[Rfam]
RNA sequence: AAGCGGGUCCUGCGCGAUGAAGCACCGUGAACCAUGUCAGGCGGGGAACCGAGCAGCAUUAAGCGGACCGUUUUAUGUGCCGCAGCAAAGCCUUCUUUU
Numbered sequence: 001a002a003g004c005g006g007g008u009c010c011u012g013c014g015c016g017a018u019g020a021a022g023c024a025c026c027g028u029g030a031a032c033c034a035u036g037u038c039a040g041g042c043g044g045g046g047a048a049c050c051g052a053g054c055a056g057c058a059u060u061a062a063g064c065g066g067a068c069c070g071u072u073u074u075a076u077g078u079g080c081c082g083c084a085g086c087a088a089a090g091c092c093u094u095c096u097u098u099u
Stems, first nucleotide, its partner, number of pairs: 005093004010085005015077001017076006025066004034059004042051003
Rfam assigns this 99-nucleotide RNA sequence from Fumia xinanensis to the family "Bacterial small signal recognition particle RNA". The source organism's lineage runs through Bacteria, Bacillota, Clostridia, Eubacteriales and Fumia. The family's consensus secondary structure is taken from published work. The signal recognition particle (SRP) is a universally conserved ribonucleoprotein involved in the co-translational targeting of proteins to membranes. The match comes from Rfam's covariance-model search (60 bits).